[Rfam]
RNA sequence: GUGCAUCUAGUAGAAAUUAAAUAUAAAAAUUCGCCAAUUAUUAGUUGGGCGCUUUAACCAUUCAGCUAUGGAUGC
Number, nucleotide and partner (000 for none) at each position: 001g000002u000003g075004c074005a073006u072007c071008u070009a000010g000011u025012a024013g000014a022015a000016a000017u000018u000019a000020a000021a000022u014023a000024u012025a011026a000027a000028a000029a000030u000031u000032c000033g000034c000035c000036a000037a000038u000039u000040a069041u068042u000043a000044g066045u065046u064047g063048g062049g061050c000051g059052c000053u000054u000055u000056a000057a000058c000059c051060a000061u049062u048063c047064a046065g045066c044067u000068a041069u040070g008071g007072a006073u005074g004075c003

This 75-nucleotide RNA from Gossypium harknessii belongs to the Rfam family "Plastid-ycf2 5UTR RNA". The family's consensus secondary structure was predicted with LocARNA. Rfam describes the family as follows. Plastid ycf2 is a non-coding RNA (ncRNA) recognised in plastids. It was found in the prime untranslated region (5UTR) of ycf2 genes, it presents a tRNA-like motif which suggests it can be involved in mRNA maturation, particularly involved in defining the precise 5' end of the transcript. A search with the family's covariance model found it, with a score of 74 bits. The source organism's lineage runs through Eukaryota, Mesangiospermae, rosids, Malvoideae and Gossypium.